[Rfam]
RNA sequence: CGCGCGCCUGCGCCGAAUCCCGUCAGGGAACCGGGGAACCACCGACUUGGGGUGAAUCGGACGUCCGUCAUGGGCGCUCGUAGGAGACCUUCCUGCUCCGAACCCUCCCCUUGGCCUCAGGGUCAGGGGGACCCCCACCGCCAACCGGUAGGCGAGAAGGAAGGAAAG
Numbered sequence: 001c002g003c004g005c006g007c008c009u010g011c012g013c014c015g016a017a018u019c020c021c022g023u024c025a026g027g028g029a030a031c032c033g034g035g036g037a038a039c040c041a042c043c044g045a046c047u048u049g050g051g052g053u054g055a056a057u058c059g060g061a062c063g064u065c066c067g068u069c070a071u072g073g074g075c076g077c078u079c080g081u082a083g084g085a086g087a088c089c090u091u092c093c094u095g096c097u098c099c100g101a102a103c104c105c106u107c108c109c110c111u112u113g114g115c116c117u118c119a120g121g122g123u124c125a126g127g128g129g130g131a132c133c134c135c136c137a138c139c140g141c142c143a144a145c146c147g148g149u150a151g152g153c154g155a156g157a158a159g160g161a162a163g164g165a166a167a168g
Stems, first nucleotide, its partner, number of pairs: 011154004018029003030149004035145001040049002050135003058067003
Dot-bracket structure: ..........((((...(((......)))((((.(....((......))(((.....(((....))).................................................................))).........))))).))))..............
The family of this 168-nucleotide RNA from Streptomyces hundungensis is "c-di-AMP riboswitch aptamer (ydaO/yuaA leader)". The source organism's lineage runs through Bacteria, Bacillati, Kitasatosporales, Streptomycetaceae and Streptomyces. A search with the family's covariance model found it, with a score of 43 bits. The base pairs follow the family's consensus structure.